[Rfam]
A member of the RNA family "c-di-GMP-I riboswitch aptamer" from Geobacter sulfurreducens, 76 nucleotides long.
RNA sequence: AGACGAUAAGACUAAACCACCCGCGAGGGUGGGGCGGAAAGCCCACGGGUCUCUCUGAGACAGCCGGGAUGCCGAA
Numbered sequence: 001a002g003a004c005g006a007u008a009a010g011a012c013u014a015a016a017c018c019a020c021c022c023g024c025g026a027g028g029g030u031g032g033g034g035c036g037g038a039a040a041g042c043c044c045a046c047g048g049g050u051c052u053c054u055c056u057g058a059g060a061c062a063g064c065c066g067g068g069a070u071g072c073c074g075a076a
Stems, first nucleotide, its partner, number of pairs: 012037002017032006040070001042068002046066003049061005